The family of this 57-nucleotide sequence is "L20-Deltaproteobacteria ribosomal protein leader".
By type it is a cis-regulatory leader.

RNA sequence: GCCCCAGAGCCGCGAGGAAACGGCCUCUUGCGGAUCGGGUAAUUUAACCUGAAGGAG
Numbered sequence: 001g002c003c004c005c006a007g008a009g010c011c012g013c014g015a016g017g018a019a020a021c022g023g024c025c026u027c028u029u030g031c032g033g034a035u036c037g038g039g040u041a042a043u044u045u046a047a048c049c050u051g052a053a054g055g056a057g
Stems, first nucleotide, its partner, number of pairs: 003039003007036002010033008